[Rfam]
RNA sequence: CGGAAGUGGAGCAGGUACCACUAUAAUAAACGGGCAUUACCGAAAGGCCAUAUGAGUAGGAUGUAA
Numbered sequence: 001c002g003g004a005a006g007u008g009g010a011g012c013a014g015g016u017a018c019c020a021c022u023a024u025a026a027u028a029a030a031c032g033g034g035c036a037u038u039a040c041c042g043a044a045a046g047g048c049c050a051u052a053u054g055a056g057u058a059g060g061a062u063g064u065a066a
Stems, first nucleotide, its partner, number of pairs: 006021004033049003040060002
RNA: DUF805 RNA
Organism: Chitinophaga skermanii